[Rfam]
RNA: Small nucleolar RNA SNORD70
Organism: Herpetotheres cachinnans
RNA sequence: UAGCUUGUUGUCAAUGAUGGAUUCUUGUUGAAGCUGAAUGUAACUGAUUUGAGUCACCAUUUAGUCACUGUCACUGAGACAGACAGAUG
Numbered sequence: 001u002a003g004c005u006u007g008u009u010g011u012c013a014a015u016g017a018u019g020g021a022u023u024c025u026u027g028u029u030g031a032a033g034c035u036g037a038a039u040g041u042a043a044c045u046g047a048u049u050u051g052a053g054u055c056a057c058c059a060u061u062u063a064g065u066c067a068c069u070g071u072c073a074c075u076g077a078g079a080c081a082g083a084c085a086g087a088u089g
Stems, first nucleotide, its partner, number of pairs: 003088001005086004009081004
Dot-bracket structure: ..(.((((((((.................................................................)))).)))).).